[Rfam]
The record is a 131-nucleotide sequence from Heterocephalus glaber, which matches "Small nucleolar RNA SNORA61" in Rfam. It is annotated as an H/ACA-box small nucleolar RNA. The family's consensus secondary structure was predicted with PFOLD. Lineage of the source: Eukaryota > Craniata > Tetrapoda > Mammalia > Heterocephalus. Rfam 15.1 lists 881 matches to the family in 421 species. It scores 136 bits against the family's covariance model.
RNA sequence: ACCCUCCGGUUCCCUUUCCCAUCGGAUCUGAACACUGGUCUUGGUGGUCGUAAAGGAGGAACAGUGAUGCUGAAACUGGCCUCACAGCCGUAUAGACUGGUACACAGCAUGUGGGCUAGUUUCAAACAGGG
Numbered sequence: 001a002c003c004c005u006c007c008g009g010u011u012c013c014c015u016u017u018c019c020c021a022u023c024g025g026a027u028c029u030g031a032a033c034a035c036u037g038g039u040c041u042u043g044g045u046g047g048u049c050g051u052a053a054a055g056g057a058g059g060a061a062c063a064g065u066g067a068u069g070c071u072g073a074a075a076c077u078g079g080c081c082u083c084a085c086a087g088c089c090g091u092a093u094a095g096a097c098u099g100g101u102a103c104a105c106a107g108c109a110u111g112u113g114g115g116c117u118a119g120u121u122u123c124a125a126a127c128a129g130g131g
Stems, first nucleotide, its partner, number of pairs: 003059005019047005025040004076119007091109001093107001